Glycine riboswitch aptamer: an 85-nucleotide RNA from Lentzea tibetensis. NCBI's taxonomy places the organism under Bacteria, Bacillati, Actinomycetes, Pseudonocardiaceae, Lentzea. Gene Ontology term of the family: glycine biosynthetic process. The match comes from Rfam's covariance-model search (41 bits).

RNA sequence: CAACUCUGGAAAGCAGGCGCAAGCCUCGCCCACGGUGCAAGCCGCUCUGCAGCGGCGAAGCUCUCAGGCUCAUGACAGAGGGGGA
Dot-bracket structure: (..(((((......((((....)))).(((.(..(.(...((((........))))....).))..)))......)))))..)..